This 169-nucleotide RNA sequence from Mycobacterium triviale belongs to the Rfam family "c-di-AMP riboswitch aptamer (ydaO/yuaA leader)". This family represents a conserved RNA structure found upstream of the ydaO and yuaA genes in Bacillus subtilis and related genes in other bacteria. The ydaO/yuaA element is thought to act as a genetic 'off' switch for the ydaO and yuaA genes in its native state. It is believed that the element may be triggered during osmotic shock leading to activation of ydaO, a predicted amino acid transporter gene, and members of the yuaA-yubG operon which code for KtrA and KtrB K+ transporters. Rfam links the family to the GO terms regulation of gene expression and cyclic-di-AMP binding. The base pairs follow the family's consensus structure.
RNA sequence: CCUCGAGCAACACCGCGGAUGGAGGCGGGGGACCCACCGGUCCACCCGGACCCGGAGUCGACGACGACUCCUUGGGGUGAAGCCGUUUUCCCUUCGGGGGUGACGGCCGGGCAGCCUCUCCAGCCCGAACCCGACAGCUGACUUCGCAGGCGUCCACACGAGAGGAAUA
Numbered sequence: 001c002c003u004c005g006a007g008c009a010a011c012a013c014c015g016c017g018g019a020u021g022g023a024g025g026c027g028g029g030g031g032a033c034c035c036a037c038c039g040g041u042c043c044a045c046c047c048g049g050a051c052c053c054g055g056a057g058u059c060g061a062c063g064a065c066g067a068c069u070c071c072u073u074g075g076g077g078u079g080a081a082g083c084c085g086u087u088u089u090c091c092c093u094u095c096g097g098g099g100g101u102g103a104c105g106g107c108c109g110g111g112c113a114g115c116c117u118c119u120c121c122a123g124c125c126c127g128a129a130c131c132c133g134a135c136a137g138c139u140g141a142c143u144u145c146g147c148a149g150g151c152g153u154c155c156a157c158a159c160g161a162g163a164g165g166a167a168u169a
Stems, first nucleotide, its partner, number of pairs: 002024003025147006035074002075132003083106004109126004